[Rfam]
RNA sequence: AGGUUAUUUCAAAGAGGGCUCAUGAGGCUACGAAACCAAGAGCUCUUAAUGCUGUGAACAAAGAUGGAAGUUCUCUAUAAAAUGCCAUAGCACUCCAUAACGUUAUGUUUUCCUGAGGCAAUAUAAGA
Numbered sequence: 001a002g003g004u005u006a007u008u009u010c011a012a013a014g015a016g017g018g019c020u021c022a023u024g025a026g027g028c029u030a031c032g033a034a035a036c037c038a039a040g041a042g043c044u045c046u047u048a049a050u051g052c053u054g055u056g057a058a059c060a061a062a063g064a065u066g067g068a069a070g071u072u073c074u075c076u077a078u079a080a081a082a083u084g085c086c087a088u089a090g091c092a093c094u095c096c097a098u099a100a101c102g103u104u105a106u107g108u109u110u111u112c113c114u115g116a117g118g119c120a121a122u123a124u125a126a127g128a
Stems, first nucleotide, its partner, number of pairs: 002059001004057004014047008023039001026037002072121001075118002079114001082111001087106005094099001
A member of the RNA family "Small nucleolar RNA SNORA25" from Aotus nancymaae, 128 nucleotides long. The base pairs follow the family's consensus structure, which was predicted with RNAfold. The source organism's lineage runs through Eukaryota, Metazoa, Eumetazoa, Tetrapoda and Aotus. Rfam links the family to the GO terms nucleolus and RNA processing. It is annotated as an H/ACA-box small nucleolar RNA. From the family's description: ACA25 is a member of the H/ACA class of snoRNA that guide the sites of modification of uridines to pseudouridines.